[Rfam]
RNA sequence: AUCUCUUUGAAUUUUGCUUAGAUCAAGUGUAGUUAGUAUCUGUUCUAUCCAUGUUUAGCUAUGUGGAUCCUUUCGUCAGAAAGGCUUUUAGUUUGCAGAAUUUUUUGUCGUGUCUGUUGCGAACAUCUGCUUGUCAGGUGGGAGUGAUGGAGGUGUCCCCGGUAUUACACUGCUUCUGGGUGAUGCUGAUGAGUG
Numbered sequence: 001a002u003c004u005c006u007u008u009g010a011a012u013u014u015u016g017c018u019u020a021g022a023u024c025a026a027g028u029g030u031a032g033u034u035a036g037u038a039u040c041u042g043u044u045c046u047a048u049c050c051a052u053g054u055u056u057a058g059c060u061a062u063g064u065g066g067a068u069c070c071u072u073u074c075g076u077c078a079g080a081a082a083g084g085c086u087u088u089u090a091g092u093u094u095g096c097a098g099a100a101u102u103u104u105u106u107g108u109c110g111u112g113u114c115u116g117u118u119g120c121g122a123a124c125a126u127c128u129g130c131u132u133g134u135c136a137g138g139u140g141g142g143a144g145u146g147a148u149g150g151a152g153g154u155g156u157c158c159c160c161g162g163u164a165u166u167a168c169a170c171u172g173c174u175u176c177u178g179g180g181u182g183a184u185g186c187u188g189a190u191g192a193g194u195g
Base pairs, nucleotide, nucleotide: 004022005021006020009017011015047068048067049066050065051064052063069084070083071082072081073080074079115146116145117144118143120141126138127137128136129135152187153186154185155184156183158180159179160178161177162176
RNA: U2 spliceosomal RNA
Organism: Botrytis elliptica